[Rfam]
RNA: Potassium channel RNA editing signal
Organism: Micromonas commoda
RNA sequence: GUGGGAUACGGAGACGUGAACCCGGCUACCAUCCUCGGCAAGACGUUUGGCAUGAUCGUGGUGGUGGUGGGCGUGCUGGUGAUCGCGCUGCCGGUGACGGUCAUCGGGAGCAAC
Numbered sequence: 001g002u003g004g005g006a007u008a009c010g011g012a013g014a015c016g017u018g019a020a021c022c023c024g025g026c027u028a029c030c031a032u033c034c035u036c037g038g039c040a041a042g043a044c045g046u047u048u049g050g051c052a053u054g055a056u057c058g059u060g061g062u063g064g065u066g067g068u069g070g071g072c073g074u075g076c077u078g079g080u081g082a083u084c085g086c087g088c089u090g091c092c093g094g095u096g097a098c099g100g101u102c103a104u105c106g107g108g109a110g111c112a113a114c
Base pairs, nucleotide, nucleotide: 001114002113004111007108009106010105011104013102014101015100020095021094037077038076039075040074050062051061